[Rfam]
Nucleotides: 068
Base pairs, nucleotide, nucleotide: 001068002067003066004065
Number, partner (000 for none) and nucleotide at each position: 001068u002067g003066c004065a005000g006000a007000u008000g009000a010000u011000g012000u013000a014000a015000a016000g017000a018000a019000u020000a021000u022000u023000u024000g025000c026000u027000a028000u029000c030000u031000u032000a033000g034000c035000a036000g037000u038000c039000a040000u041000g042000c043000a044000g045000a046000c047000a048000a049000c050000c051000a052000c053000c054000a055000a056000g057000a058000u059000c060000g061000c062000u063000g064000a065004u066003g067002c068001a
A member of the RNA family "Small nucleolar RNA SNORD24" from Anguilla anguilla, 68 nucleotides long. Its family is annotated with RNA processing and nucleolus in the Gene Ontology. The source organism's lineage runs through Eukaryota, Bilateria, Vertebrata, Euteleostomi and Anguilla. The literature on the family includes a 1995 paper in Nucleic Acids Res by Qu et al., "U24, a novel intron-encoded small nucleolar RNA with two 12 nt long, phylogenetically conserved complementarities to 28S rRNA". By type it is a C/D-box small nucleolar RNA.